[Rfam]
RNA: Glycine riboswitch aptamer
Organism: Blautia hydrogenotrophica
RNA sequence: AAGAAGAAUUCGGGAGAGACCGUCUAAAAAGACGGCGCCGAAGGGGAAAGGUGGAAACUCUCAGGCAAAAAGACCGGGUUUGGACG
Numbered sequence: 001a002a003g004a005a006g007a008a009u010u011c012g013g014g015a016g017a018g019a020c021c022g023u024c025u026a027a028a029a030a031g032a033c034g035g036c037g038c039c040g041a042a043g044g045g046g047a048a049a050g051g052u053g054g055a056a057a058c059u060c061u062c063a064g065g066c067a068a069a070a071a072g073a074c075c076g077g078g079u080u081u082g083g084a085c086g
Base pairs, nucleotide, nucleotide: 006081007080008079009078010077011076012075013074020035021034022033023032037066038065039064040062041061044060045059046058